This 145-nucleotide sequence from Anaerococcus nagyae belongs to the Rfam family "glmS glucosamine-6-phosphate activated ribozyme aptamer". A reference for the family is Winkler et al. (2004), "Control of gene expression by a natural metabolite-responsive ribozyme", Nature.
RNA sequence: AAAAUAUAAGAAGCGCCAGGACCUUAGGGUUGACGAGGGAUGGAGUUAUCGAAGGAUUCGGCGGAUGCUCCAAAGGUAUUACAGCCUUAGUAAUGUACAAAUACUUCUAAGUAAUAGAAAGACAAAAUCAUUACAGUAAUCCUCA
Numbered sequence: 001a002a003a004a005u006a007u008a009a010g011a012a013g014c015g016c017c018a019g020g021a022c023c024u025u026a027g028g029g030u031u032g033a034c035g036a037g038g039g040a041u042g043g044a045g046u047u048a049u050c051g052a053a054g055g056a057u058u059c060g061g062c063g064g065a066u067g068c069u070c071c072a073a074a075g076g077u078a079u080u081a082c083a084g085c086c087u088u089a090g091u092a093a094u095g096u097a098c099a100a101a102u103a104c105u106u107c108u109a110a111g112u113a114a115u116a117g118a119a120a121g122a123c124a125a126a127a128u129c130a131u132u133a134c135a136g137u138a139a140u141c142c143u144c145a
Base pairs, nucleotide, nucleotide: 020031021030022029023028041072042071043070044069045068049061050060051059052058073088074087075086076085077084090134091133092132093131094130095129105119106118107117108116109115

Source information
Pairs were carried over by alignment from the consensus structure, which is taken from published work. It is annotated as a riboswitch.